Source information:
Rfam assigns this 254-nucleotide sequence from Nephila pilipes to the family "RNase MRP". By type it is a ribozyme. Taxonomically the source falls in Nephila (Eukaryota, Eumetazoa, Bilateria, Araneoidea). For this family Rfam cites "Secondary structure of RNase MRP RNA as predicted by phylogenetic comparison" (Schmitt et al., FASEB J, 1993). From the family's description: RNase MRP is an enzymatically active ribonucleoprotein with two distinct roles in eukaryotes. In mitochondria it plays a direct role in the initiation of mitochondrial DNA replication. In the nucleus it is involved in precursor rRNA processing, where it cleaves the internal transcribed spacer 1 between 18S and 5.8S rRNAs. Despite distinct functions, RNase MRP has been shown to be evolutionarily related to RNase P. Like eukaryotic RNase P, RNase MRP is not catalytically active without associated protein subunits.
RNA sequence: AGAUUCACUUCUAGCUUGCCUUCGGAGCCACGUACGGGUCCUUCUGACUCAAUUAGCUCUGGGGAAAGUCCCCGAACCCUCUGACGGAAAGCGAUCGUACUGUAAUAGGUACUGUCCUACACUCUUCUUGCUUAAACUGUGAAGGCUUGUCCAGAGUGAGCAGGAAUGUAAGGAGUAGGAAAAUGUUUAAUCCUUUCAGAUAUGCAAGCAGGGCGGAUGCGUCCUUACGGAAUGGGGCUUAUUGAAAGUGAAUC
Number, nucleotide and partner (000 for none) at each position: 001a000002g254003a253004u252005u251006c250007a249008c248009u247010u246011c000012u000013a000014g209015c208016u207017u206018g205019c204020c000021u000022u062023c061024g060025g059026a058027g057028c056029c000030a000031c000032g000033u000034a000035c000036g050037g049038g048039u047040c046041c000042u000043u000044c000045u000046g040047a039048c038049u037050c036051a000052a000053u000054u000055a000056g028057c027058u026059c025060u024061g023062g022063g000064g000065a000066a240067a239068g238069u000070c237071c236072c235073c234074g000075a000076a000077c000078c000079c000080u000081c000082u000083g095084a000085c093086g092087g000088a000089a000090a000091g000092c086093g085094a000095u083096c000097g112098u111099a110100c109101u108102g000103u000104a000105a000106u000107a000108g101109g100110u099111a098112c097113u000114g000115u180116c179117c178118u000119a000120c000121a176122c175123u174124c173125u172126u171127c000128u000129u000130g169131c168132u000133u166134a000135a000136a000137c163138u162139g161140u160141g000142a000143a000144g000145g000146c000147u156148u155149g000150u000151c000152c000153a000154g000155a148156g147157u000158g000159a000160g140161c139162a138163g137164g000165a000166a133167u000168g131169u130170a000171a126172g125173g124174a123175g122176u121177a000178g117179g116180a115181a000182a000183a000184u000185g000186u000187u000188u000189a000190a000191u000192c000193c000194u000195u000196u000197c000198a000199g000200a000201u000202a000203u000204g019205c018206a017207a016208g015209c014210a000211g224212g223213g222214c221215g220216g000217a000218u000219g000220c215221g214222u213223c212224c211225u000226u000227a000228c000229g000230g000231a000232a000233u000234g073235g072236g071237g070238c068239u067240u066241a000242u000243u000244g000245a000246a010247a009248g008249u007250g006251a005252a004253u003254c002